[Rfam]
RNA sequence: UAGAACAAAGUAGUUAAGGGAAGUCGGCAAAAUUGAUCCGUAACUUCGGGAUAAGGAUUGGCUCUGAUGGUCGGUCGAGCAUAUGGGGCGGUGGUUGACCUUCGGGUUUACUGCCUGCGCCGCUCGACAAUCGACCGUAUCAGAACUGGUACGGACUUCGGGAAUCUGACUGUCUAAUUAAAACAUAGCAUUGCGAUGCUCCCAAAGGACGUUGACGCAAUGUGAUUUCUGCCCAGUGCUCUGAAUGUCAAAGUGAAGAAAUUCAAUCAAGCGCGGGUAAACGGCGGGAGUAACUAUGACUCUCUUAAGGUAGCCAAAUGCCUCGUCAUCUAAUUAGUGACGCGCAUGAAUGGAUUAACGAGAUUCCCACUGUCCCUAUCUACUAUCUAGCGAAACCACAGCCAAGGGAACGGGCUUGGCAGA
Dot-bracket structure: ((((....(((((.((.(((..............(((((....(....).....)))))((.(((((((((((.(((.((.......((((((((.((((....)))).)))).))))...)).)))....)))))..)))))).))(...).......(((((((((..(((.........)))..((((((((....(((....)))......))))))))...(((.(((..((((((.(..(((.....((((....)))).....))))))))..)))))((((((.......))))))(...)...............(((((.......)))))..........)))....)).)))))))....))).)).))))).))))............(((((........)))))....
Numbered sequence: 001u002a003g004a005a006c007a008a009a010g011u012a013g014u015u016a017a018g019g020g021a022a023g024u025c026g027g028c029a030a031a032a033u034u035g036a037u038c039c040g041u042a043a044c045u046u047c048g049g050g051a052u053a054a055g056g057a058u059u060g061g062c063u064c065u066g067a068u069g070g071u072c073g074g075u076c077g078a079g080c081a082u083a084u085g086g087g088g089c090g091g092u093g094g095u096u097g098a099c100c101u102u103c104g105g106g107u108u109u110a111c112u113g114c115c116u117g118c119g120c121c122g123c124u125c126g127a128c129a130a131u132c133g134a135c136c137g138u139a140u141c142a143g144a145a146c147u148g149g150u151a152c153g154g155a156c157u158u159c160g161g162g163a164a165u166c167u168g169a170c171u172g173u174c175u176a177a178u179u180a181a182a183a184c185a186u187a188g189c190a191u192u193g194c195g196a197u198g199c200u201c202c203c204a205a206a207g208g209a210c211g212u213u214g215a216c217g218c219a220a221u222g223u224g225a226u227u228u229c230u231g232c233c234c235a236g237u238g239c240u241c242u243g244a245a246u247g248u249c250a251a252a253g254u255g256a257a258g259a260a261a262u263u264c265a266a267u268c269a270a271g272c273g274c275g276g277g278u279a280a281a282c283g284g285c286g287g288g289a290g291u292a293a294c295u296a297u298g299a300c301u302c303u304c305u306u307a308a309g310g311u312a313g314c315c316a317a318a319u320g321c322c323u324c325g326u327c328a329u330c331u332a333a334u335u336a337g338u339g340a341c342g343c344g345c346a347u348g349a350a351u352g353g354a355u356u357a358a359c360g361a362g363a364u365u366c367c368c369a370c371u372g373u374c375c376c377u378a379u380c381u382a383c384u385a386u387c388u389a390g391c392g393a394a395a396c397c398a399c400a401g402c403c404a405a406g407g408g409a410a411c412g413g414g415c416u417u418g419g420c421a422g423a
Stems, first nucleotide, its partner, number of pairs: 001389004009384005015378002018375003035059005044049001060147002063144006069136005075127003079123002088118004092113004097108004148152001160368007167360002171185003188223008200209003227354003231285003236282002238278004243274001246273003254265004286304006305309001325341005402419005